[Rfam]
RNA: MIR1886 microRNA precursor family
Organism: Solanum commersonii
RNA sequence: UGAGAUGGAAUCAUCGUUUGAAUAUGUGAUUUUACGUUGAUUUCAUAUCAUG
Numbered sequence: 001u002g003a004g005a006u007g008g009a010a011u012c013a014u015c016g017u018u019u020g021a022a023u024a025u026g027u028g029a030u031u032u033u034a035c036g037u038u039g040a041u042u043u044c045a046u047a048u049c050a051u052g
Stems, first nucleotide, its partner, number of pairs: 001050003005046009015036003018029003
Dot-bracket structure: (((.(((((((((.((((((......)))....))).))))))))).)))..